Plastid-psbN 5UTR RNA: a 61-nucleotide RNA sequence from Ziziphus jujuba. On this family, see Richter et al., Plant Commun 2023: "Retrograde signaling in plants: A critical review focusing on the GUN pathway and beyond". Rfam 15.1 lists 2,345 matches to the family in 397 species. The family's RNA type in Rfam is cis-regulatory element.
RNA sequence: UAUGAUACCCAUCAAAGUAGUAGUUCCCCACCCAGGAGCAACUUUACCGUAUUCUGAAUUC
Number, nucleotide and partner (000 for none) at each position: 001u000002a000003u000004g000005a000006u000007a000008c000009c000010c000011a000012u000013c000014a000015a000016a000017g045018u000019a043020g042021u041022a000023g039024u038025u037026c036027c035028c000029c000030a000031c000032c000033c000034a000035g027036g026037a025038g024039c023040a000041a021042c020043u019044u000045u017046a000047c000048c000049g000050u000051a000052u000053u000054c000055u000056g000057a000058a000059u000060u000061c000